Ribosomal S15 leader: a 123-nucleotide RNA from Kangiella sp. HZ709. Rfam describes the family as follows. The E. coli Ribosomal S15 gene 5' UTR can form two alternative structures. One that is a series of three hairpins, The other includes a pseudoknot. The match comes from Rfam's covariance-model search (82 bits). It is annotated as a cis-regulatory leader. Clan: Ribosomal Protein S15 Leader clan. Pairs were carried over by alignment from the consensus structure, which is taken from published work. Taxonomically the source falls in Kangiella (Bacteria, Pseudomonadati, Gammaproteobacteria, Kangiellaceae). Rfam links the family to the GO term regulation of translation, ncRNA-mediated.

RNA sequence: UUGAUUGGCUGAAUUAGUGAUUGGCUGGUCAGUAAUUAUAAAGACUCAACAUUUUGGAGUAGAGAUAUGUCACUAAGUGCAGAAGCGAAAGCUGAAAUUGUAAAAGAACACGCUCGUGCAGAA
Number, nucleotide and partner (000 for none) at each position: 001u000002u000003g000004a000005u000006u000007g026008g025009c024010u023011g022012a021013a000014u000015u000016a000017g000018u000019g000020a000021u012022u011023g010024g009025c008026u007027g000028g000029u000030c000031a000032g000033u000034a000035a000036u000037u000038a000039u000040a000041a000042a000043g000044a000045c000046u000047c000048a000049a000050c000051a000052u000053u077054u076055u075056g074057g073058a000059g071060u000061a000062g000063a000064g000065a000066u000067a000068u000069g000070u000071c059072a000073c057074u056075a055076a054077g053078u000079g000080c000081a000082g000083a000084a000085g000086c000087g000088a000089a000090a000091g000092c000093u000094g000095a000096a000097a000098u000099u000100g000101u000102a000103a000104a000105a000106g000107a000108a000109c000110a000111c000112g000113c000114u000115c000116g000117u000118g000119c000120a000121g000122a000123a000